Annotation
T-box leader: a 202-nucleotide sequence from Desulfuribacillus stibiiarsenatis. The family's RNA type in Rfam is cis-regulatory leader. About the family: Uncharged tRNA acts as the effector for transcription antitermination of genes in the T-box leader family. T-boxes are found upstream of many aminoacyl-tRNA synthetase genes and some amino acid biosynthetic genes usually in Gram-positive bacteria. The literature on the family includes a 1994 paper in J Bacteriol by Grundy et al., "Interaction between the acceptor end of tRNA and the T box stimulates antitermination in the Bacillus subtilis tyrS gene: a new role for the discriminator base". The organism belongs to Desulfuribacillus, within Bacteria.
Nucleotides: 202
Stems, first nucleotide, its partner, number of pairs: 007103002015098004025085006035074003046071006106122007124135003151168007173199004184195004
Number, partner (000 for none) and nucleotide at each position: 001000g002000a003000c004000a005000a006000g007103g008102c009000u010000a011000c012000g013000a014000u015098a016097a017096g018095g019000a020000a021000a022000g023000u024000a025085a026084a027083a028082a029081a030080c031000g032000g033000a034000g035074c036073a037072u038000u039000a040000c041000a042000g043000a044000g045000a046071g047070u048069g049068g050067g051066c052000a053000a054000a055000c056000a057000g058000c059000u060000g061000a062000a063000a064000u065000u066051g067050c068049u069048u070047a071046c072037a073036u074035g075000u076000u077000g078000a079000a080030g081029u082028u083027u084026u085025u086000g087000a088000a089000a090000a091000u092000g093000c094000a095018c096017c097016u098015u099000g100000g101000a102008g103007c104000c105000g106122u107121g108120c109119a110118g111117a112116a113000u114000g115000a116112u117111u118110c119109u120108g121107c122106a123000a124135c125134g126133g127000g128000g129000a130000a131000a132000c133126c134125c135124g136000u137000u138000a139000u140000u141000c142000g143000u144000u145000u146000g147000a148000g149000u150000g151168a152167u153166g154165c155164a156163a157162a158000g159000g160000a161000c162157u163156u164155u165154g166153c167152a168151u169000a170000a171000u172000c173199a174198g175197a176196g177000u178000g179000g180000a181000a182000c183000c184195a185194c186193g187192a188000g189000a190000a191000a192187u193186c194185g195184u196176c197175u198174c199173u200000g201000u202000u